[Rfam]
RNA sequence: UAGGCCGGAUGAGGUCAAGGUGAGCAUGACGGUGCGUUGGUCGACGGCGGCGCUGGAGCUCACUGGUGCAGUGCAAGAAGAUGGGCUCCAGUUGGUCGAUGGGGUGAUGUGGUUCCGACUGGCGUC
Numbered sequence: 001u002a003g004g005c006c007g008g009a010u011g012a013g014g015u016c017a018a019g020g021u022g023a024g025c026a027u028g029a030c031g032g033u034g035c036g037u038u039g040g041u042c043g044a045c046g047g048c049g050g051c052g053c054u055g056g057a058g059c060u061c062a063c064u065g066g067u068g069c070a071g072u073g074c075a076a077g078a079a080g081a082u083g084g085g086c087u088c089c090a091g092u093u094g095g096u097c098g099a100u101g102g103g104g105u106g107a108u109g110u111g112g113u114u115c116c117g118a119c120u121g122g123c124g125u126c
Base pairs, nucleotide, nucleotide: 004123005122006121007120008119
RNA: Small nucleolar RNA Z206
Organism: Leersia perrieri